[Rfam]
Overview:
Shown here is a 66-nucleotide sequence, a member of the family "nadA riboswitch". It is annotated as a small RNA. A reference for the family is Chen et al. (2020), "Structural distinctions between NAD+ riboswitch domains 1 and 2 determine differential folding and ligand binding", Nucleic Acids Res.
RNA sequence: GGUUGCAACAUCCCCGCGGGUUGGGUUUCGGCUAAACGUGGCCGGAAUAGCGAAUCCGCUGCAACC
Numbered sequence: 001g002g003u004u005g006c007a008a009c010a011u012c013c014c015c016g017c018g019g020g021u022u023g024g025g026u027u028u029c030g031g032c033u034a035a036a037c038g039u040g041g042c043c044g045g046a047a048u049a050g051c052g053a054a055u056c057c058g059c060u061g062c063a064a065c066c
Stems, first nucleotide, its partner, number of pairs: 001066007013052001014050001016059007023051001025048010